This 227-nucleotide RNA sequence from Anaplasma marginale belongs to the Rfam family "permuted transfer-messenger RNA".
The organism belongs to Anaplasma marginale, within Bacteria.
The family's RNA type in Rfam is non-coding RNA gene.
The family's consensus secondary structure is taken from published work.
Nucleotides: 227
Stems, first nucleotide, its partner, number of pairs: 001122005014111004026099003030096003036052005053081007123140004
Number, partner (000 for none) and nucleotide at each position: 001122g002121g003120c004119a005118a006000u007000a008000a009000a010000g011000g012000c013000c014111u015110c016109u017108u018000g019000g020000a021000a022000u023000a024000g025000g026099c027098g028097u029000u030096u031095u032094g033000g034000a035000c036052c037051c038050g039049a040048g041000g042000g043000c044000a045000g046000u047000g048040c049039u050038c051037g052036g053081c054080a055079u056078c057077u058076c059075c060000a061000c062000u063000g064000u065000u066000g067000c068000u069000u070000u071000g072000u073000a074000u075059g076058g077057g078056g079055a080054u081053g082000a083000a084000a085000c086000a087000g088000g089000a090000u091000a092000g093000a094032c095031a096030g097028a098027c099026g100000c101000a102000a103000u104000a105000a106000a107000g108017a109016g110015g111014a112000c113000g114000g115000c116000g117000u118005u119004u120003g121002c122001u123140c124139g125138g126137u127000g128000g129000g130000a131000a132000u133000u134000c135000c136000a137126g138125c139124c140123g141000u142000a143000u144000a145000a146000g147000u148000g149000g150000g151000u152000c153000a154000u155000u156000u157000u158000u159000a160000u161000a162000a163000g164000u165000g166000c167000a168000a169000a170000c171000g172000a173000u174000g175000a176000u177000u178000u179000c180000g181000u182000u183000g184000c185000c186000g187000c188000u189000a190000a191000u192000g193000a194000u195000a196000a197000c198000a199000u200000g201000g202000a203000a204000a205000c206000a207000g208000c209000u210000u211000u212000c213000g214000u215000a216000g217000c218000u219000g220000c221000u222000g223000c224000c225000u226000a227000g